[Rfam]
RNA sequence: GGGUGCUUGAGGCUAUCUGCCUCGGGCAUGAACACCAAAGGUAGAUAGAGAAAAGCCCCAGUUAACAUUACGCGUCCUGCAAGACGUUUAACAUUAAUCUGAGGCCAUAUCUAUGCGACACAUAGAGAUUAGCCUCUUACGGACCGAAAGGUCAAGGAGAAGCAGGCUAUG
Numbered sequence: 001g002g003g004u005g006c007u008u009g010a011g012g013c014u015a016u017c018u019g020c021c022u023c024g025g026g027c028a029u030g031a032a033c034a035c036c037a038a039a040g041g042u043a044g045a046u047a048g049a050g051a052a053a054a055g056c057c058c059c060a061g062u063u064a065a066c067a068u069u070a071c072g073c074g075u076c077c078u079g080c081a082a083g084a085c086g087u088u089u090a091a092c093a094u095u096a097a098u099c100u101g102a103g104g105c106c107a108u109a110u111c112u113a114u115g116c117g118a119c120a121c122a123u124a125g126a127g128a129u130u131a132g133c134c135u136c137u138u139a140c141g142g143a144c145c146g147a148a149a150g151g152u153c154a155a156g157g158a159g160a161a162g163c164a165g166g167c168u169a170u171g
Stems, first nucleotide, its partner, number of pairs: 001059003005056004013048010026035001060100002063097001064095002068091002101136005107129002110126006140162001145157001
This 171-nucleotide sequence belongs to the Rfam family "sok antitoxin (CssrC)". Pairs were carried over by alignment from the consensus structure, which is taken from published work. Also identified in Shigella as CssrC. It is annotated as an antitoxin RNA.